This 135-nucleotide RNA from Pseudomonas sp. HLS-6 belongs to the Rfam family "Pseudomonas sRNA P14". The family's RNA type in Rfam is small RNA.
RNA sequence: CUGAAUGCUUUUCAUACAGCGACUGUGUCGGUUUCGACAGAAGCGUAAUUUUUUUCCAGUUCUUGCGCUGUGUCAGUUUACUUACUACAAGUAAUGGGUAGUAUGUACGCCGGCCAGUUUCUCUUUGUUGAGAGA
Numbered sequence: 001c002u003g004a005a006u007g008c009u010u011u012u013c014a015u016a017c018a019g020c021g022a023c024u025g026u027g028u029c030g031g032u033u034u035c036g037a038c039a040g041a042a043g044c045g046u047a048a049u050u051u052u053u054u055u056c057c058a059g060u061u062c063u064u065g066c067g068c069u070g071u072g073u074c075a076g077u078u079u080a081c082u083u084a085c086u087a088c089a090a091g092u093a094a095u096g097g098g099u100a101g102u103a104u105g106u107a108c109g110c111c112g113g114c115c116a117g118u119u120u121c122u123c124u125u126u127g128u129u130g131a132g133a134g135a
Base pairs, nucleotide, nucleotide: 038067041064042063043062045060046059072114073113074112076110077109079107080106081105083103084102085101086100087099088098090095118135119134120133121132122131123130
The source organism's lineage runs through Bacteria, Pseudomonadota, Gammaproteobacteria, Pseudomonadaceae and Pseudomonas. A search with the family's covariance model found it, with a score of 98 bits.